Rfam assigns this 122-nucleotide sequence from Borborobacter arsenicus to the family "Rhizobiales sRNA Atu_C8". For this family Rfam cites "Deep sequencing uncovers numerous small RNAs on all four replicons of the plant pathogen Agrobacterium tumefaciens" (Wilms et al., RNA Biol, 2012). The family's RNA type in Rfam is small RNA.
RNA sequence: CAUGAAAAUAGCACUCAUUCUCGUAGUAGGACGGCGCGUGGGCAAGGCGGUGUAACCGCCGGGCGAAAUCCUCCCAUGCGCUGCACACAGGCUCCCUCGGGGGCCUUUUUUAUUGGCGAAAA
Numbered sequence: 001c002a003u004g005a006a007a008a009u010a011g012c013a014c015u016c017a018u019u020c021u022c023g024u025a026g027u028a029g030g031a032c033g034g035c036g037c038g039u040g041g042g043c044a045a046g047g048c049g050g051u052g053u054a055a056c057c058g059c060c061g062g063g064c065g066a067a068a069u070c071c072u073c074c075c076a077u078g079c080g081c082u083g084c085a086c087a088c089a090g091g092c093u094c095c096c097u098c099g100g101g102g103g104c105c106u107u108u109u110u111u112a113u114u115g116g117c118g119a120a121a122a
Stems, first nucleotide, its partner, number of pairs: 009026001030117001032115001033082010046060005063070001087107001089106007
Dot-bracket structure: ........(................)...(.(((((((((((...(((((.....)))))..(......)..))))))))))....(.(((((((....)))))))).......).).....